This 43-nucleotide sequence from Bacillus sp. V3-13 belongs to the Rfam family "PreQ1 (pre queuosine) riboswitch aptamer".

RNA sequence: ACGGUAGAGGUUCUAGCUACCCUCUUAAAAAAACUAAGAGAAA
Numbered sequence: 001a002c003g004g005u006a007g008a009g010g011u012u013c014u015a016g017c018u019a020c021c022c023u024c025u026u027a028a029a030a031a032a033a034c035u036a037a038g039a040g041a042a043a
Stems, first nucleotide, its partner, number of pairs: 006025005014036002
Pairs were carried over by alignment from the consensus structure.
A search with the family's covariance model found it, with a score of 45 bits.
Rfam describes the family as follows. This family is a bacterial riboswitch that binds to the metabolite preQ1, an intermediate in the biosynthesis of the modified nucleoside queuosine from GTP. One example of this riboswitch is located in the leader of the Bacillus subtilis ykvJKLM (queCDEF) operon which encodes four genes necessary for queuosine production. PreQ1 binding to the riboswitch aptamer is thought to induce premature transcription termination within the leader to down-regulate expression of these genes.